[Rfam]
RNA: Small nucleolar RNA snoR99
RNA sequence: GAGCUCGAGGGAUGAACUAGUCCCUCAUAUCUAACAUCCAUCUGAUCACUUUGUCAGUUGCCUUUCCCAGUGGCAUGCUGAUCAUUAUAAGAUGGAAAAUGU
Numbered sequence: 001g002a003g004c005u006c007g008a009g010g011g012a013u014g015a016a017c018u019a020g021u022c023c024c025u026c027a028u029a030u031c032u033a034a035c036a037u038c039c040a041u042c043u044g045a046u047c048a049c050u051u052u053g054u055c056a057g058u059u060g061c062c063u064u065u066c067c068c069a070g071u072g073g074c075a076u077g078c079u080g081a082u083c084a085u086u087a088u089a090a091g092a093u094g095g096a097a098a099a100u101g102u
Base pairs, nucleotide, nucleotide: 037096038095039094040093041092042091053082054081055080056079057078058077